[Rfam]
RNA sequence: GACUGGCUCGAUGGUAGUAGGUUAUCAGAACUUAUUAAUAUUUAGUGUCACUAACAUUGGUAUACAAGCCCCCACUACUAAAUUCGACUGGCUUUAA
Numbered sequence: 001g002a003c004u005g006g007c008u009c010g011a012u013g014g015u016a017g018u019a020g021g022u023u024a025u026c027a028g029a030a031c032u033u034a035u036u037a038a039u040a041u042u043u044a045g046u047g048u049c050a051c052u053a054a055c056a057u058u059g060g061u062a063u064a065c066a067a068g069c070c071c072c073c074a075c076u077a078c079u080a081a082a083u084u085c086g087a088c089u090g091g092c093u094u095u096a097a
Stems, first nucleotide, its partner, number of pairs: 001093001003091004008086001010085002015080001016076003020072002033062003037058002